[Rfam]
RNA sequence: GGACUGGGAAAUCUCUGCAGGCAACUGUGACGUGACUGUAUCUCACAUUAACCGGCAGGGAUUCUACAGUCC
Numbered sequence: 001g002g003a004c005u006g007g008g009a010a011a012u013c014u015c016u017g018c019a020g021g022c023a024a025c026u027g028u029g030a031c032g033u034g035a036c037u038g039u040a041u042c043u044c045a046c047a048u049u050a051a052c053c054g055g056c057a058g059g060g061a062u063u064c065u066a067c068a069g070u071c072c
Base pairs, nucleotide, nucleotide: 003070004069005068006067010063011062012061013060014059015058016057017056021053024049026047027046028045029044030043